[Rfam]
RNA sequence: UGGUGAUGAUGAAGACCAUUUUGCCAUCAUUCGCGGUUUCCACCAGAGACGGUCAGUCUCUCAGACUGUCAGAGAUGGUUUUAGUCCUUCCUUGGAAGUCUGAGCCA
Number, nucleotide and partner (000 for none) at each position: 001u107002g106003g105004u104005g000006a000007u000008g000009a000010u000011g000012a000013a000014g000015a000016c000017c000018a000019u000020u000021u000022u000023g000024c000025c000026a000027u000028c000029a000030u000031u000032c000033g000034c000035g000036g000037u000038u000039u000040c000041c000042a000043c000044c000045a000046g000047a000048g000049a069050c068051g067052g066053u065054c064055a000056g000057u000058c000059u000060c000061u000062c000063a000064g054065a053066c052067u051068g050069u049070c000071a000072g000073a000074g000075a000076u000077g000078g000079u000080u000081u000082u000083a000084g000085u000086c000087c000088u000089u000090c000091c000092u000093u000094g000095g000096a000097a000098g000099u000100c000101u000102g000103a000104g004105c003106c002107a001
Small nucleolar RNA SNORD14: a 107-nucleotide RNA from Lingula anatina. Rfam 15.1 lists 4,559 matches to the family in 936 species. Rfam links the family to the GO terms RNA processing and nucleolus. U14 small nucleolar RNA (U14 snoRNA) is required for early cleavages of eukaryotic precursor rRNAs. The family's RNA type in Rfam is C/D-box small nucleolar RNA. NCBI's taxonomy places the organism under Eukaryota, Opisthokonta, Eumetazoa, Lophotrochozoa, Lingula. The literature on the family includes a 1996 paper in Nucleic Acids Res by Samarsky et al., "An essential domain in Saccharomyces cerevisiae U14 snoRNA is absent in vertebrates, but conserved in other yeasts". It scores 66 bits against the family's covariance model.